[Rfam]
RNA sequence: AGGUCGGAAGGGAUGCGGUGGGACGCAUCCCAGCAUUGACCGGAACACUCCGCUCUUAAAGCAGCGCCUCACGGCCCCGGUGAGGACGCGCU
Numbered sequence: 001a002g003g004u005c006g007g008a009a010g011g012g013a014u015g016c017g018g019u020g021g022g023a024c025g026c027a028u029c030c031c032a033g034c035a036u037u038g039a040c041c042g043g044a045a046c047a048c049u050c051c052g053c054u055c056u057u058a059a060a061g062c063a064g065c066g067c068c069u070c071a072c073g074g075c076c077c078c079g080g081u082g083a084g085g086a087c088g089c090g091c092u
Stems, first nucleotide, its partner, number of pairs: 002041004010031008063092005068084005